Nucleotides: 089
Stems, first nucleotide, its partner, number of pairs: 001089008
Number, partner (000 for none) and nucleotide at each position: 001089g002088c003087u004086g005085u006084a007083c008082a009000g010000u011000g012000a013000u014000g015000a016000u017000a018000a019000c020000u021000u022000g023000g024000c025000u026000c027000c028000c029000u030000c031000u032000a033000c034000u035000g036000a037000g038000a039000c040000u041000u042000g043000u044000g045000a046000g047000g048000a049000g050000a051000a052000c053000a054000a055000c056000c057000a058000c059000u060000a061000a062000c063000g064000u065000u066000a067000c068000c069000c070000u071000u072000u073000a074000u075000u076000u077000c078000u079000g080000a081000g082008u083007g084006u085005a086004c087003a088002g089001c
The record is an 89-nucleotide RNA sequence from Podarcis muralis, which matches "Small nucleolar RNA SNORD100" in Rfam. The match comes from Rfam's covariance-model search (67 bits). For this family Rfam cites "RNomics: an experimental approach that identifies 201 candidates for novel, small, non-messenger RNAs in mouse" (Huttenhofer et al., EMBO J, 2001). The family's RNA type in Rfam is C/D-box small nucleolar RNA.